[Rfam]
Overview: Rfam assigns this 54-nucleotide sequence from Carassius auratus to the family "UnaL2 LINE 3' element".
RNA sequence: AAAUUGAUAGCCUGUAAGUCGCUUUGGAUAAAAGCGUCUGCUAAAUGCAUAAUU
Numbered sequence: 001a002a003a004u005u006g007a008u009a010g011c012c013u014g015u016a017a018g019u020c021g022c023u024u025u026g027g028a029u030a031a032a033a034g035c036g037u038c039u040g041c042u043a044a045a046u047g048c049a050u051a052a053u054u
Base pairs, nucleotide, nucleotide: 013043014041015040016039020036021035022034023033024032025031
The source organism's lineage runs through Eukaryota, Bilateria, Cypriniformes, Cyprininae and Carassius. The family's consensus secondary structure is taken from published work.